[Rfam]
RNA sequence: UAGUGUCUUGUCAGCCUUCUCAACUCGAACUCACACGGAUCACUUGUUGAUCAACACAUUCGGGAGGAAAGUCCCCGGACCCAGGCCAGAAAGUGGCACUCAUGAGACUAGCAACCUGCCUCUAACAGAUCAUAUAGGCCAAGAUGAACCCUGUGUUCUAGCUUAUCUGUGGGCCAGGCGAUCGUCAGAGCGUAGAAAUAGAAGGAGUUGAUCAUUCAACUAACACAACGGGGCUCAUUCGACAAGAACAUU
Number, nucleotide and partner (000 for none) at each position: 001u000002a252003g251004u250005g249006u248007c000008u245009u244010g243011u242012c241013a000014g000015c205016c204017u203018u202019c201020u200021c000022a000023a000024c064025u063026c062027g061028a060029a059030c000031u000032c000033a000034c000035a000036c000037g000038g052039a051040u050041c049042a048043c000044u000045u000046g000047u000048u042049g041050a040051u039052c038053a000054a000055c000056a000057c000058a000059u029060u028061c027062g026063g025064g024065a000066g000067g000068a000069a000070a235071g234072u000073c233074c232075c231076c230077g000078g000079a000080c000081c000082c000083a000084g000085g097086c096087c095088a094089g000090a000091a000092a000093g000094u088095g087096g086097c085098a109099c000100u107101c106102a000103u000104g000105a000106g101107a100108c000109u098110a000111g179112c000113a000114a000115c000116c177117u176118g175119c000120c173121u172122c000123u000124a000125a170126c169127a168128g167129a000130u000131c000132a000133u000134a000135u000136a164137g163138g162139c161140c000141a000142a000143g000144a000145u000146g000147a157148a156149c155150c000151c000152u000153g000154u000155g149156u148157u147158c000159u000160a000161g139162c138163u137164u136165a000166u000167c128168u127169g126170u125171g000172g121173g120174c000175c118176a117177g116178g000179c111180g000181a000182u000183c000184g000185u000186c000187a000188g000189a000190g000191c000192g000193u000194a000195g000196a000197a000198a000199u000200a020201g019202a018203a017204g016205g015206a000207g220208u219209u218210g217211a216212u000213c000214a000215u000216u211217c210218a209219a208220c207221u000222a000223a000224c000225a000226c000227a000228a000229c000230g076231g075232g074233g073234c071235u070236c000237a000238u000239u000240c000241g012242a011243c010244a009245a008246g000247a000248a006249c005250a004251u003252u002
Description:
The record is a 252-nucleotide RNA from Daphnia pulex, which matches "RNase MRP" in Rfam. By type it is a ribozyme. Gene Ontology terms of the family: rRNA processing, ribonuclease MRP activity and ribonuclease MRP complex. The base pairs follow the family's consensus structure, which is taken from published work.